[Rfam]
RNA: Bacteroidales-1 6S-Bacteroidales RNA suggested
Organism: Prevotella brunnea
RNA sequence: AGUCGUAUCGAUUUGAUCGGGAUAGUCAUCAAAUAAAUCAGAAAACCGAGAUGACUUCUCUUGUUGAUGGCGGGCCACAUUAAUCGUAUUUCUACGGCUAAACCGCAAGGUCGGUGGAUUACAAAGACAGAGAACUCUCUUAUCAUAGAUACUCGGACUUUUCAUCACAUCAUCGAUACGACUUUUCAA
Numbered sequence: 001a002g003u004c005g006u007a008u009c010g011a012u013u014u015g016a017u018c019g020g021g022a023u024a025g026u027c028a029u030c031a032a033a034u035a036a037a038u039c040a041g042a043a044a045a046c047c048g049a050g051a052u053g054a055c056u057u058c059u060c061u062u063g064u065u066g067a068u069g070g071c072g073g074g075c076c077a078c079a080u081u082a083a084u085c086g087u088a089u090u091u092c093u094a095c096g097g098c099u100a101a102a103c104c105g106c107a108a109g110g111u112c113g114g115u116g117g118a119u120u121a122c123a124a125a126g127a128c129a130g131a132g133a134a135c136u137c138u139c140u141u142a143u144c145a146u147a148g149a150u151a152c153u154c155g156g157a158c159u160u161u162u163c164a165u166c167a168c169a170u171c172a173u174c175g176a177u178a179c180g181a182c183u184u185u186u187c188a189a
Stems, first nucleotide, its partner, number of pairs: 056134004061130005068123002075117004102111003